[Rfam]
RNA sequence: AAAAAAUGAAAUAAUGUUCCGUAGACAGUAGGUGCGGUUUCGCGUAACGUAUAACUACCUACCGAGGGGUUCUGUAAAUAUAUGAUUUUUAUAGGUCUUCCUCUGUCUACGGGAAGACCUUUUAUAAUACGAAA
Numbered sequence: 001a002a003a004a005a006a007u008g009a010a011a012u013a014a015u016g017u018u019c020c021g022u023a024g025a026c027a028g029u030a031g032g033u034g035c036g037g038u039u040u041c042g043c044g045u046a047a048c049g050u051a052u053a054a055c056u057a058c059c060u061a062c063c064g065a066g067g068g069g070u071u072c073u074g075u076a077a078a079u080a081u082a083u084g085a086u087u088u089u090u091a092u093a094g095g096u097c098u099u100c101c102u103c104u105g106u107c108u109a110c111g112g113g114a115a116g117a118c119c120u121u122u123u124a125u126a127a128u129a130c131g132a133a134a
Stems, first nucleotide, its partner, number of pairs: 028062006034043003094119009